[Rfam]
RNA sequence: AGUAUUGGUUAAGGCUUGCUAUGGUUACGCACUGAUAUCCUGUCAAUCGACUCGAUAUUGUAGGCUCUUGUGUCUGUGAGGUUCUUAUGGUCGUAGGUGUGACAUCGUGACUAGGGAAAUUCCCCGGACUGAAAUGGCAGAAAGUGCCGCUCCGAAAGGAGUACUAACGGUCAUUGAUUCAAGGCGAAGAUAGGAUGAGUCUACGUUUUGGUGGCUGUGAAUUGGUCGUUAUCAAAGAUAUGCAGGCAACCUUCUGAUGACUUCGUUACGUCAGAGGGCGAACAGAAUGGGGCUUACUCUAACCAAUAC
Numbered sequence: 001a002g003u004a005u006u007g008g009u010u011a012a013g014g015c016u017u018g019c020u021a022u023g024g025u026u027a028c029g030c031a032c033u034g035a036u037a038u039c040c041u042g043u044c045a046a047u048c049g050a051c052u053c054g055a056u057a058u059u060g061u062a063g064g065c066u067c068u069u070g071u072g073u074c075u076g077u078g079a080g081g082u083u084c085u086u087a088u089g090g091u092c093g094u095a096g097g098u099g100u101g102a103c104a105u106c107g108u109g110a111c112u113a114g115g116g117a118a119a120u121u122c123c124c125c126g127g128a129c130u131g132a133a134a135u136g137g138c139a140g141a142a143a144g145u146g147c148c149g150c151u152c153c154g155a156a157a158g159g160a161g162u163a164c165u166a167a168c169g170g171u172c173a174u175u176g177a178u179u180c181a182a183g184g185c186g187a188a189g190a191u192a193g194g195a196u197g198a199g200u201c202u203a204c205g206u207u208u209u210g211g212u213g214g215c216u217g218u219g220a221a222u223u224g225g226u227c228g229u230u231a232u233c234a235a236a237g238a239u240a241u242g243c244a245g246g247c248a249a250c251c252u253u254c255u256g257a258u259g260a261c262u263u264c265g266u267u268a269c270g271u272c273a274g275a276g277g278g279c280g281a282a283c284a285g286a287a288u289g290g291g292g293c294u295u296a297c298u299c300u301a302a303c304c305a306a307u308a309c
Stems, first nucleotide, its partner, number of pairs: 002309010014247006022114001023112003034103001036101003040097001118295002122292004136148004150161004164219001170215006182202004250278010
RNA: RNase MRP